[Rfam]
RNA sequence: GUCGCUAUAGCGUGGGUUAUAGUUCAGAAACGCAAAGCCUCGCGCCUGAUCGAUGGUGUGAAACAGCGGGUUCCAAUCAAACAUCGCCAGCAUGAAGCCAGGAAGGGUGUUUGCAACAAACAUCUUGCCAGAGGCAAUCAUAUUGGCGCGUUG
Numbered sequence: 001g002u003c004g005c006u007a008u009a010g011c012g013u014g015g016g017u018u019a020u021a022g023u024u025c026a027g028a029a030a031c032g033c034a035a036a037g038c039c040u041c042g043c044g045c046c047u048g049a050u051c052g053a054u055g056g057u058g059u060g061a062a063a064c065a066g067c068g069g070g071u072u073c074c075a076a077u078c079a080a081a082c083a084u085c086g087c088c089a090g091c092a093u094g095a096a097g098c099c100a101g102g103a104a105g106g107g108u109g110u111u112u113g114c115a116a117c118a119a120a121c122a123u124c125u126u127g128c129c130a131g132a133g134g135c136a137a138u139c140a141u142a143u144u145g146g147c148g149c150g151u152u153g
Stems, first nucleotide, its partner, number of pairs: 002035001004033001006032001008030001011027001014024002037057003041052002064153005070082003086147005092141003098134002102129001104126005110119002